Shown here is a 138-nucleotide sequence from Erinaceus europaeus, a member of the family "Small nucleolar RNA SNORA46". The sequence is in the family's curated seed alignment. Rfam links the family to the GO terms nucleolus and RNA processing. Rfam's curators write: ACA46 is a member of the H/ACA class of snoRNA that guide the sites of modification of uridines to pseudouridines. By type it is an H/ACA-box small nucleolar RNA.

RNA sequence: CGCACUAUAUUUAAACUGUGGAUGGGAAUCUUUACCAUUCUUAGUUACGCUGUAGUGCAAAAUAAUUUCUUGAGGUUUCUUGUGUUGCACAGCUGACUUUGCCAAUCUGCUGUUGCUAUAUGAAGUUAAGGAACAUAU
Number, nucleotide and partner (000 for none) at each position: 001c000002g058003c057004a056005c055006u054007a053008u052009a051010u000011u000012u000013a000014a046015a045016c044017u043018g000019u000020g040021g039022a038023u037024g036025g035026g000027a000028a000029u000030c000031u000032u000033u000034a000035c025036c024037a023038u022039u021040c020041u000042u000043a017044g016045u015046u014047a000048c000049g000050c000051u009052g008053u007054a006055g005056u004057g003058c002059a000060a000061a000062a000063u000064a000065a000066u000067u133068u132069c131070u130071u129072g000073a000074g127075g126076u125077u124078u123079c122080u000081u120082g119083u000084g000085u000086u000087g116088c115089a114090c112091a111092g110093c109094u000095g107096a106097c000098u000099u000100u000101g000102c000103c000104a000105a000106u096107c095108u000109g093110c092111u091112g090113u000114u089115g088116c087117u000118a000119u082120a081121u000122g079123a078124a077125g076126u075127u074128a000129a071130g070131g069132a068133a067134c000135a000136u000137a000138u000